[Rfam]
RNA sequence: UAUGAAUCUAAUAGAAACACUUCUGCACAAACUAGAUUACAGAUACCAGUGUGCGGAAACGCUUCUGCUACAUUUUUA
Numbered sequence: 001u002a003u004g005a006a007u008c009u010a011a012u013a014g015a016a017a018c019a020c021u022u023c024u025g026c027a028c029a030a031a032c033u034a035g036a037u038u039a040c041a042g043a044u045a046c047c048a049g050u051g052u053g054c055g056g057a058a059a060c061g062c063u064u065c066u067g068c069u070a071c072a073u074u075u076u077u078a
Base pairs, nucleotide, nucleotide: 001078002077004075005074006073007072009070010069012067013066014065015064016063018061021058022057023056024055025054026053027052028051029050032049033048

Rfam assigns this 78-nucleotide RNA from Microcebus murinus to the family "mir-147 microRNA precursor family".
Rfam 15.1 lists 757 matches to the family in 593 species.
It scores 89 bits against the family's covariance model.
Taxonomically the source falls in Microcebus (Eukaryota, Deuterostomia, Vertebrata, Amniota).